[Rfam]
RNA sequence: CCCUCGCCUGCCCAGUGUUCAGACUACCUGUUCAUCAUGCUGCAGCUGAACAGUAGUCCGCACAUUGGUUAGGCUGGGCU
Numbered sequence: 001c002c003c004u005c006g007c008c009u010g011c012c013c014a015g016u017g018u019u020c021a022g023a024c025u026a027c028c029u030g031u032u033c034a035u036c037a038u039g040c041u042g043c044a045g046c047u048g049a050a051c052a053g054u055a056g057u058c059c060g061c062a063c064a065u066u067g068g069u070u071a072g073g074c075u076g077g078g079c080u
Stems, first nucleotide, its partner, number of pairs: 012068007020060001022058005028053004033048002
Dot-bracket structure: ...........(((((((.(.(((((.((((.((............)).))))))))).).)))))))............
RNA: mir-199 microRNA precursor family